[Rfam]
RNA sequence: AGAGCAGGCCUUUCAGGCAUCCUCUCCUAAAAACUUUCAGGCCGGUCGUUUCGAUCGGCCUUUUUUUUCGCGCGGA
Numbered sequence: 001a002g003a004g005c006a007g008g009c010c011u012u013u014c015a016g017g018c019a020u021c022c023u024c025u026c027c028u029a030a031a032a033a034c035u036u037u038c039a040g041g042c043c044g045g046u047c048g049u050u051u052c053g054a055u056c057g058g059c060c061u062u063u064u065u066u067u068u069c070g071c072g073c074g075g076a
Stems, first nucleotide, its partner, number of pairs: 008018004039061009
A member of the RNA family "Makes More Granules Regulator RNA (mmgR)" from Sphingobium sp. TCM1, 76 nucleotides long. From the family's description: SuhB later renamed mmgR (makes more granules regulator) was a putative non-coding RNA found multiple times in the Agrobacterium tumefaciens genome and related alpha-proteobacteria. Rfam classes the family as a small RNA.